[Rfam]
RNA sequence: AACUUCCUUCGGGGCGGGGUGCAAGUCCCCACCGGCGGUGAACCCCACAGGGGCAGCCCGCGAAGCCCGCCCAAAGGGCGGGCCCGACCCGGUGAGAAUCCGGGGCCGACCGUGAAAGUCGGGAUGGGAGAAGGAGGGA
Numbered sequence: 001a002a003c004u005u006c007c008u009u010c011g012g013g014g015c016g017g018g019g020u021g022c023a024a025g026u027c028c029c030c031a032c033c034g035g036c037g038g039u040g041a042a043c044c045c046c047a048c049a050g051g052g053g054c055a056g057c058c059c060g061c062g063a064a065g066c067c068c069g070c071c072c073a074a075a076g077g078g079c080g081g082g083c084c085c086g087a088c089c090c091g092g093u094g095a096g097a098a099u100c101c102g103g104g105g106c107c108g109a110c111c112g113u114g115a116a117a118g119u120c121g122g123g124a125u126g127g128g129a130g131a132a133g134g135a136g137g138g139a
Stems, first nucleotide, its partner, number of pairs: 003137008017029003031119002033108002035061004056106002065083002088104005110122003

Rfam assigns this 139-nucleotide RNA sequence from Meiothermus sp. QL-1 to the family "FMN riboswitch aptamer (RFN element)".
Its family is annotated with FMN binding in the Gene Ontology.